[Rfam]
RNA sequence: AUCGUUCAUCCUAAUCUAGGUCGUAAAUUUUGGAUUGCUAAAGCUAGACCGCUAAAGCUAGAUCAGCUAAAGCUAGAUUGUCAGCAAAGCACCGGGGGCGAUCGAAAAGGACGGAAGUAGGGAAAAAACUAGAAGCUAAAAAGACAAAAGCCCAAAAAUUUUCCUGAAGGAACGCGCC
Dot-bracket structure: ..(((((.((((...............................................................................................))))..[.....(((((((................................)))))))....)))))]...
Description: This 178-nucleotide RNA from Cyanobacteria bacterium FACHB-502 belongs to the Rfam family "Glutamine riboswitch aptamer (glnA leader)". It scores 38 bits against the family's covariance model. A reference for the family is Ren et al. (2015), "Structural and Dynamic Basis for Low-Affinity, High-Selectivity Binding of L-Glutamine by the Glutamine Riboswitch", Cell Rep. The organism belongs to Cyanobacteriota, within Bacteria.